[Rfam]
RNA: Group II catalytic intron D1-D4-5
Organism: Turicibacter sp. H121
RNA sequence: UCUAACUACAUUACUGAUAACUCAAAUGAGAGCGCCAAUAAAGCUCGAAGGGGUACACUGAGACCUCCCGCAUGCACUCUUAGCUAACAAAUGAGAGUGUGUGAAGCCGGGUAAAGACGAGUGAAACCUACCCUAACACGUAAUGGUGAGGAAAAAUAAGUCAGAGGUGACUAUGUAGGCAUAGCACGGGUGGCGAUUGA
Numbered sequence: 001u002c003u004a005a006c007u008a009c010a011u012u013a014c015u016g017a018u019a020a021c022u023c024a025a026a027u028g029a030g031a032g033c034g035c036c037a038a039u040a041a042a043g044c045u046c047g048a049a050g051g052g053g054u055a056c057a058c059u060g061a062g063a064c065c066u067c068c069c070g071c072a073u074g075c076a077c078u079c080u081u082a083g084c085u086a087a088c089a090a091a092u093g094a095g096a097g098u099g100u101g102u103g104a105a106g107c108c109g110g111g112u113a114a115a116g117a118c119g120a121g122u123g124a125a126a127c128c129u130a131c132c133c134u135a136a137c138a139c140g141u142a143a144u145g146g147u148g149a150g151g152a153a154a155a156a157u158a159a160g161u162c163a164g165a166g167g168u169g170a171c172u173a174u175g176u177a178g179g180c181a182u183a184g185c186a187c188g189g190g191u192g193g194c195g196a197u198u199g200a
Stems, first nucleotide, its partner, number of pairs: 018055002021052003031045003056192004067111004071103012118188002121185002127179005132151003138147002155174001157173002160171004